[Rfam]
RNA sequence: UGAAUAGUACAGCCGAAUUUCUUAAGGAAAUCGGGGGAACCAUAAAGUUGUCGAAAUGGAUGAAUAGGCUGAUAGGGCUGUUCUCUUUCGGCGGCAUGGGGUGAAUUUUUGCGGGAGAGACUCGUCUCUAACCGCCGAAUAGGGCUGCCUGUCCAGGCCCGAAUCCGUCAGCUAACCUCGUAGGCGUAUUGGAACAGGACU
Numbered sequence: 001u002g003a004a005u006a007g008u009a010c011a012g013c014c015g016a017a018u019u020u021c022u023u024a025a026g027g028a029a030a031u032c033g034g035g036g037g038a039a040c041c042a043u044a045a046a047g048u049u050g051u052c053g054a055a056a057u058g059g060a061u062g063a064a065u066a067g068g069c070u071g072a073u074a075g076g077g078c079u080g081u082u083c084u085c086u087u088u089c090g091g092c093g094g095c096a097u098g099g100g101g102u103g104a105a106u107u108u109u110u111g112c113g114g115g116a117g118a119g120a121c122u123c124g125u126c127u128c129u130a131a132c133c134g135c136c137g138a139a140u141a142g143g144g145c146u147g148c149c150u151g152u153c154c155a156g157g158c159c160c161g162a163a164u165c166c167g168u169c170a171g172c173u174a175a176c177c178u179c180g181u182a183g184g185c186g187u188a189u190u191g192g193a194a195c196a197g198g199a200c201u
Base pairs, nucleotide, nucleotide: 012185013184014183018030019029020028032180033179034178035177036176041098042097099166100165101164107139108138109137142160143159144158145157
The family of this 201-nucleotide sequence from Paenibacillus prosopidis is "c-di-AMP riboswitch aptamer (ydaO/yuaA leader)". A search with the family's covariance model found it, with a score of 75 bits. Rfam links the family to the GO terms regulation of gene expression and cyclic-di-AMP binding. Pairs were carried over by alignment from the consensus structure. From the family's description: This family represents a conserved RNA structure found upstream of the ydaO and yuaA genes in Bacillus subtilis and related genes in other bacteria.